[Rfam]
Nucleotides: 117
Base pairs, nucleotide, nucleotide: 003077004076005075006074011064012063013062014061015060016059017058018057027053028052029051030050031049032048033047034046095117097116098115100113101112
Number, partner (000 for none) and nucleotide at each position: 001000a002000g003077c004076u005075g006074c007000g008000c009000c010000u011064u012063g013062u014061g015060c016059a017058c018057a019000g020000a021000c022000c023000a024000a025000a026000c027053u028052a029051u030050u031049c032048u033047u034046u035000c036000g037000c038000c039000u040000u041000c042000u043000a044000c045000u046034a047033a048032a049031g050030a051029a052028u053027a054000c055000c056000g057018u058017g059016u060015g061014c062013a063012u064011g065000c066000c067000u068000c069000c070000c071000u072000u073000a074006g075005c076004a077003g078000c079000a080000u081000a082000c083000a084000c085000c086000a087000c088000u089000u090000u091000u092000u093000g094000a095117a096000a097116g098115g099000c100113u101112c102000u103000u104000g105000c106000c107000u108000c109000u110000a111000u112101g113100g114000a115098c116097c117095u